[Rfam]
RNA sequence: UGCGGUUAAAACGUUCGUAGUUGAAUUUGUGCUUCAUACGGGUAGUACACCAUUAUUUGGUCUGUACGUUACCAUUGUAUGGAAGCGUAUUAUCGGUGGAGUUUUUAAUAUAUGAUAUUUCUUCGGAUUUUCAUGUAUUUAACUCCUAUUUAAACCUGCUUCAGUGCUCUUAACCGAGUGUUGUUGUGGGCCGAUACAAUUACUUUGAACAAAUUAGAGUGCUUAAAGCAGGCUCCAAAUGCCUGAAUAUUUUGUGCAUGGAAUAAUGGAAUAAGACCUCUGUUCUACUUUCAUUGGUUUUUAGAUCAAGAGGUAAUGAUUAAUAGAAGCAGUUGGGGGCAUUGGUAUUACGACGCGAGAGGUGAAAUUCUUGGACCGUCGUAAGACUAACUUAAGCGAAAGCAUUUGCCAAAGAUGUUUUCAUUAAUCAAGAACGAAAGUUAGAGGUUCGAAGGCGAUCAGAUACCGCCCUAGUUCUAACCAUAAACGAUGCCAGCUAGCAAUUGGGUGUAGCUACUACUAUGGCUCUCUCAGUCGCUUCCCGGGAAACCAAAGCUUUUGGGCUCCGGGGGAAGUAUGGUUGCAAAGCUGAAACUUAAA
Number, nucleotide and partner (000 for none) at each position: 001u000002g000003c568004g567005g566006u000007u000008a000009a000010a000011a565012c000013g435014u434015u433016c432017g000018u000019a000020g428021u427022u426023g000024a000025a000026u000027u000028u000029g000030u000031g000032c000033u000034u000035c000036a000037u000038a000039c000040g000041g000042g000043u000044a000045g000046u000047a000048c000049a000050c000051c000052a000053u000054u000055a000056u000057u000058u000059g000060g000061u000062c000063u000064g000065u000066a000067c000068g000069u000070u000071a000072c000073c000074a000075u000076u000077g000078u000079a000080u000081g000082g000083a000084a000085g000086c000087g000088u000089a000090u000091u000092a000093u000094c000095g000096g000097u000098g000099g000100a000101g000102u000103u000104u000105u000106u000107a000108a000109u000110a000111u000112a000113u000114g000115a000116u000117a000118u000119u000120u000121c000122u000123u000124c000125g000126g000127a000128u000129u000130u000131u000132c000133a000134u000135g000136u000137a000138u000139u000140u000141a000142a000143c000144u000145c000146c000147u000148a000149u000150u000151u000152a000153a000154a000155c000156c000157u000158g000159c000160u000161u000162c000163a000164g000165u000166g000167c000168u000169c000170u000171u000172a000173a000174c000175c000176g000177a000178g000179u000180g000181u000182u000183g000184u000185u000186g000187u000188g000189g000190g000191c000192c000193g000194a000195u000196a000197c000198a000199a000200u000201u000202a000203c000204u000205u000206u000207g000208a000209a000210c000211a000212a000213a000214u000215u000216a000217g000218a000219g000220u000221g000222c000223u000224u000225a000226a000227a000228g000229c000230a000231g000232g000233c000234u000235c000236c000237a000238a000239a000240u000241g000242c000243c000244u000245g000246a000247a000248u000249a000250u000251u000252u000253u000254g000255u000256g000257c000258a000259u000260g000261g000262a000263a000264u000265a000266a000267u000268g000269g000270a000271a000272u000273a000274a000275g000276a000277c000278c000279u000280c000281u000282g000283u000284u000285c000286u000287a000288c000289u000290u000291u000292c000293a000294u000295u000296g000297g000298u000299u000300u000301u000302u000303a000304g000305a000306u000307c000308a000309a000310g000311a000312g000313g000314u000315a000316a000317u000318g000319a000320u000321u000322a000323a000324u000325a000326g422327a421328a420329g419330c417331a416332g000333u414334u413335g000336g000337g000338g410339g409340c408341a407342u000343u000344g388345g387346u000347a000348u384349u383350a382351c381352g380353a379354c378355g377356c000357g000358a000359g370360a369361g368362g000363u000364g000365a000366a000367a000368u361369u360370c359371u000372u000373g000374g000375a000376c000377c355378g354379u353380c352381g351382u350383a349384a348385g000386a000387c345388u344389a000390a000391c000392u000393u404394a000395a000396g403397c402398g000399a000400a000401a000402g397403c396404a393405u000406u000407u341408g340409c339410c338411a000412a000413a334414g333415a000416u331417g330418u000419u329420u328421u327422c326423a000424u000425u000426a022427a021428u020429c000430a000431a000432g016433a015434a014435c013436g000437a000438a000439a000440g481441u480442u479443a478444g477445a476446g000447g000448u000449u000450c474451g000452a000453a000454g470455g469456c468457g467458a000459u000460c000461a000462g000463a000464u000465a000466c000467c457468g456469c455470c454471c000472u000473a000474g450475u000476u445477c444478u443479a442480a441481c440482c000483a000484u000485a000486a000487a000488c000489g000490a000491u000492g564493c563494c562495a557496g556497c555498u000499a539500g538501c537502a000503a000504u534505u533506g532507g531508g530509u000510g528511u000512a000513g526514c525515u524516a000517c000518u000519a000520c000521u000522a000523u000524g515525g514526c513527u000528c510529u000530c508531u507532c506533a505534g504535u000536c000537g501538c500539u499540u000541c000542c000543c000544g551545g550546g000547a000548a000549a000550c545551c544552a000553a000554a000555g497556c496557u495558u000559u000560u000561g000562g494563g493564c492565u011566c005567c004568g003569g000570g597571g596572g595573a000574a000575g000576u000577a000578u000579g590580g589581u588582u587583g000584c000585a000586a000587a582588g581589c580590u579591g000592a000593a000594a000595c572596u571597u570598a000599a000600a000
RNA: Eukaryotic small subunit ribosomal RNA, nucleotides 622 to 1221
Organism: Hermetia illucens